[Rfam]
RNA sequence: UGGGCAACCUAGGGGAGCUGCGGCGGGUCCGCGGCUGAGAGUGCGCAAGGCGCAGACCCUGUGAACCUGUCCGGGCAAUACCGGCGAAGGAAAGGAAUGACCAUGACGG
Numbered sequence: 001u002g003g004g005c006a007a008c009c010u011a012g013g014g015g016a017g018c019u020g021c022g023g024c025g026g027g028u029c030c031g032c033g034g035c036u037g038a039g040a041g042u043g044c045g046c047a048a049g050g051c052g053c054a055g056a057c058c059c060u061g062u063g064a065a066c067c068u069g070u071c072c073g074g075g076c077a078a079u080a081c082c083g084g085c086g087a088a089g090g091a092a093a094g095g096a097a098u099g100a101c102c103a104u105g106a107c108g109g
Stems, first nucleotide, its partner, number of pairs: 008095003011060004017035007042054005066090003071084004
Shown here is a 109-nucleotide sequence from Bifidobacterium boum, a member of the family "TPP riboswitch aptamer (THI element)". A search with the family's covariance model found it, with a score of 60 bits. Taxonomically the source falls in Bifidobacterium (Bacteria, Actinomycetota, Actinomycetes, Bifidobacteriaceae).